Rfam assigns this 62-nucleotide RNA sequence to the family "pemK RNA".
Rfam classes the family as a cis-regulatory element.

[Rfam]
RNA sequence: ACAAUGAUACUUCCGCCCAACGCGGCCCGGUCAGAGUAGACGGGGAGAUGAGAUUUCUAUGU
Numbered sequence: 001a002c003a004a005u006g007a008u009a010c011u012u013c014c015g016c017c018c019a020a021c022g023c024g025g026c027c028c029g030g031u032c033a034g035a036g037u038a039g040a041c042g043g044g045g046a047g048a049u050g051a052g053a054u055u056u057c058u059a060u061g062u
Base pairs, nucleotide, nucleotide: 012059013025014024015023016022026045027044028043030041031040032039046058047057048056